[Rfam]
RNA: FMN riboswitch aptamer (RFN element)
Organism: Sagittula salina
RNA sequence: GCGCAUUCUCAGGGCGGGGUGGAAUUCCCCACCGGCGGUUACAGCCCGCGAGCGCCCCCGGCCAGAAACCGGGGGGUCAGCAGACACCGGUGGAAUUCCGGGGCCGACGGUCACAGUCCGGAUGGAAGAGAACUCAG
Numbered sequence: 001g002c003g004c005a006u007u008c009u010c011a012g013g014g015c016g017g018g019g020u021g022g023a024a025u026u027c028c029c030c031a032c033c034g035g036c037g038g039u040u041a042c043a044g045c046c047c048g049c050g051a052g053c054g055c056c057c058c059c060g061g062c063c064a065g066a067a068a069c070c071g072g073g074g075g076g077u078c079a080g081c082a083g084a085c086a087c088c089g090g091u092g093g094a095a096u097u098c099c100g101g102g103g104c105c106g107a108c109g110g111u112c113a114c115a116g117u118c119c120g121g122a123u124g125g126a127a128g129a130g131a132a133c134u135c136a137g
Base pairs, nucleotide, nucleotide: 003135006132007131008130009129010128017029018028019027031117032116033106034105035049036048037047038046044104045103052081053080085102087101088100089099090098108120109119110118
Dot-bracket structure: ..(..(((((......(((.......))).[[((((((.....[[))))..((..........................))...(.((((.......)))))]])).(((.....]]))).......)))))..)..